[Rfam]
RNA sequence: GUACUCCCUCCAUCCCAUAAUAUAGGACGUUUUUUGACAUUAGUGUAGUGUCAAAAAACGUCUUACAUUACGGGACGGAGGGAGUAG
Numbered sequence: 001g002u003a004c005u006c007c008c009u010c011c012a013u014c015c016c017a018u019a020a021u022a023u024a025g026g027a028c029g030u031u032u033u034u035u036g037a038c039a040u041u042a043g044u045g046u047a048g049u050g051u052c053a054a055a056a057a058a059c060g061u062c063u064u065a066c067a068u069u070a071c072g073g074g075a076c077g078g079a080g081g082g083a084g085u086a087g
Base pairs, nucleotide, nucleotide: 003085004084005083007081008080009079010078011077013075014074015073016072019069020068021067023065024064025063026062027061028060029059030058031057032056033055034054035053036052037051038050039049040048041047
The record is an 87-nucleotide sequence from Triticum turgidum, which matches "MIR1120/MIR1122 microRNA precursor family" in Rfam. Its family is annotated with miRNA-mediated post-transcriptional gene silencing and RISC complex in the Gene Ontology. Lineage of the source: Eukaryota > Viridiplantae > Pooideae > Triticinae > Triticum turgidum. Pairs were carried over by alignment from the consensus structure, which was predicted with RNAalifold.